[Rfam]
RNA sequence: AUAACUUUAAAAGCGCCUGAACUAAGCUGGAGCGACCAUGAGCUUAGUUGACGAGGAGGAGGUUUAUCGAAGUAUCGGCGGAUGCCUCCCGGUUGAACCAACCACAACCGUAACGUUCUGUAAAAAGCAAAGGGGUGACCCUUUGUACAAAUGCAGUUCGAUGGUUAACA
Numbered sequence: 001a002u003a004a005c006u007u008u009a010a011a012a013g014c015g016c017c018u019g020a021a022c023u024a025a026g027c028u029g030g031a032g033c034g035a036c037c038a039u040g041a042g043c044u045u046a047g048u049u050g051a052c053g054a055g056g057a058g059g060a061g062g063u064u065u066a067u068c069g070a071a072g073u074a075u076c077g078g079c080g081g082a083u084g085c086c087u088c089c090c091g092g093u094u095g096a097a098c099c100a101a102c103c104a105c106a107a108c109c110g111u112a113a114c115g116u117u118c119u120g121u122a123a124a125a126a127g128c129a130a131a132g133g134g135g136u137g138a139c140c141c142u143u144u145g146u147a148c149a150a151a152u153g154c155a156g157u158u159c160g161a162u163g164g165u166u167a168a169c170a
Base pairs, nucleotide, nucleotide: 020049021048022047023046024045025044026043027042058089059088060087061086062085067078068077069076070075090110091109092108093107094106095105114160115159118156119155120154128145129144130143131142132141133140134139
The record is a 170-nucleotide sequence from Priestia koreensis, which matches "glmS glucosamine-6-phosphate activated ribozyme aptamer" in Rfam. The match comes from Rfam's covariance-model search (131 bits). Its family is annotated with catalytic activity and regulation of gene expression in the Gene Ontology.